This 72-nucleotide RNA from Pollutimonas bauzanensis belongs to the Rfam family "tRNA".
RNA sequence: GCGCCCGUAGUUCAAUGGAUAGAAUGUGAGUCUCCGAAGCUCUUGAUACAGGUUCGAUUCCUGUCGGGCGCG
Number, nucleotide and partner (000 for none) at each position: 001g071002c070003g069004c068005c067006c066007g065008u000009a000010g025011u024012u023013c022014a000015a000016u000017g000018g000019a000020u000021a000022g013023a012024a011025u010026g000027u000028g042029a041030g040031u039032c000033u000034c000035c000036g000037a000038a000039g031040c030041u029042c028043u000044u000045g000046a000047u000048a064049c063050a062051g061052g060053u000054u000055c000056g000057a000058u000059u000060c052061c051062u050063g049064u048065c007066g006067g005068g004069c003070g002071c001072g000